A member of the RNA family "Saccharopolyspora sRNA 350" from Streptomyces sp. WMMB 714, 508 nucleotides long. Gene Ontology term of the family: regulation of secondary metabolite biosynthetic process. The base pairs follow the family's consensus structure, which was predicted with RNAfold. NCBI's taxonomy places the organism under Bacteria, Actinomycetota, Actinomycetes, Streptomycetaceae, Streptomyces.

[Rfam]
RNA sequence: CGGAACGUGCACUCCCACGUCGGCUCGGUCCCGGUCAGGCACUGCUCGCCGAAGUAGGCGCCGUCGGCGAGGAAGCCGAGUACCUGGUCCCCGCCGUACGGUCCGGUGCCGACCUUGUCGACGCGGCCGUGCGCCAGCAGGAAGACGCGGUCCUUGGCGUCGCCGGCGCGGGCCAGCACGGUGCCCGGCUCGCAGUCCACCCGCUCGCAGCGCUCGGCGAGCCGGCCCAGCACCUCCUCGUCGCCGUAGCCGCUGAGCGCCGGGAGUUCGCCCAGUUCGGCCGGGAUGACCGACACCUCCCCGCCGGUCUGCACGAACGUCAGCCGUCCGUCGCCGACGGCGUAGCUCAGCCGCCGGUUCACCCGGUAGGUACCGCCCUUCACGUCCACCCACGGCAGCAUCCGCAGCAGCCAGCGGGAGGAGGUCUCCUGCAUCUGCGGAGCGGAUUUCGCGGUCGUCGACAGGUUCCGCGCCGCGGACGCCGCCAGACUCUGCUGCGCGGACGCCU
Numbered sequence: 001c002g003g004a005a006c007g008u009g010c011a012c013u014c015c016c017a018c019g020u021c022g023g024c025u026c027g028g029u030c031c032c033g034g035u036c037a038g039g040c041a042c043u044g045c046u047c048g049c050c051g052a053a054g055u056a057g058g059c060g061c062c063g064u065c066g067g068c069g070a071g072g073a074a075g076c077c078g079a080g081u082a083c084c085u086g087g088u089c090c091c092c093g094c095c096g097u098a099c100g101g102u103c104c105g106g107u108g109c110c111g112a113c114c115u116u117g118u119c120g121a122c123g124c125g126g127c128c129g130u131g132c133g134c135c136a137g138c139a140g141g142a143a144g145a146c147g148c149g150g151u152c153c154u155u156g157g158c159g160u161c162g163c164c165g166g167c168g169c170g171g172g173c174c175a176g177c178a179c180g181g182u183g184c185c186c187g188g189c190u191c192g193c194a195g196u197c198c199a200c201c202c203g204c205u206c207g208c209a210g211c212g213c214u215c216g217g218c219g220a221g222c223c224g225g226c227c228c229a230g231c232a233c234c235u236c237c238u239c240g241u242c243g244c245c246g247u248a249g250c251c252g253c254u255g256a257g258c259g260c261c262g263g264g265a266g267u268u269c270g271c272c273c274a275g276u277u278c279g280g281c282c283g284g285g286a287u288g289a290c291c292g293a294c295a296c297c298u299c300c301c302c303g304c305c306g307g308u309c310u311g312c313a314c315g316a317a318c319g320u321c322a323g324c325c326g327u328c329c330g331u332c333g334c335c336g337a338c339g340g341c342g343u344a345g346c347u348c349a350g351c352c353g354c355c356g357g358u359u360c361a362c363c364c365g366g367u368a369g370g371u372a373c374c375g376c377c378c379u380u381c382a383c384g385u386c387c388a389c390c391c392a393c394g395g396c397a398g399c400a401u402c403c404g405c406a407g408c409a410g411c412c413a414g415c416g417g418g419a420g421g422a423g424g425u426c427u428c429c430u431g432c433a434u435c436u437g438c439g440g441a442g443c444g445g446a447u448u449u450c451g452c453g454g455u456c457g458u459c460g461a462c463a464g465g466u467u468c469c470g471c472g473c474c475g476c477g478g479a480c481g482c483c484g485c486c487a488g489a490c491u492c493u494g495c496u497g498c499g500c501g502g503a504c505g506c507c508u
Stems, first nucleotide, its partner, number of pairs: 007389003011385002017380001019328001022325002026319002029316002036311005042306001047303002051299002054233002058228001060226004065111004075103001080099001082097002086095003118220003122216002126213002130209001133205001135203001137201001140198002143196001150191001155188001157186001159184002162177001165174003235295001240290004245285001250283001252281007261270002329342004353377001355375003361371003391431002394428002397425001399423001401421001403418001405416001407415001437476004442471005447465003452460001480505002482502001484500002486497003